[Rfam]
Nucleotides: 162
Stems, first nucleotide, its partner, number of pairs: 001050011014030004033082006066158004071153001089132005102119007
Number, partner (000 for none) and nucleotide at each position: 001050u002049c003048u004047a005046u006045a007044u008043g009042g010041a011040u012000a013000u014030a015029u016028c017027c018000c019000u020000u021000a022000g023000c024000u025000a026000a027017g028016g029015a030014u031000u032000g033082a034081u035080u036079c037078g038077g039000a040011g041010u042009u043008c044007a045006u046005a047004u048003a049002g050001a051000a052000a053000a054000a055000c056000c057000a058000a059000a060000u061000a062000g063000u064000g065000u066158c067157a068156g069155c070000g071153g072000u073000c074000u075000u076000a077038c078037c079036g080035a081034a082033u083000a084000a085000g086000g087000c088000a089132g090131c091130u092129a093128c094000a095000a096000g097000u098000a099000a100000a101000a102119a103118u104117g105116a106115a107114g108113g109000a110000a111000u112000u113108u114107c115106u116105u117104c118103a119102u120000a121000u122000a123000a124000g125000c126000u127000u128093g129092u130091g131090g132089u133000c134000u135000u136000u137000u138000a139000a140000u141000u142000g143000u144000g145000c146000c147000u148000u149000a150000u151000u152000u153071u154000a155069g156068c157067u158066g159000a160000a161000a162000g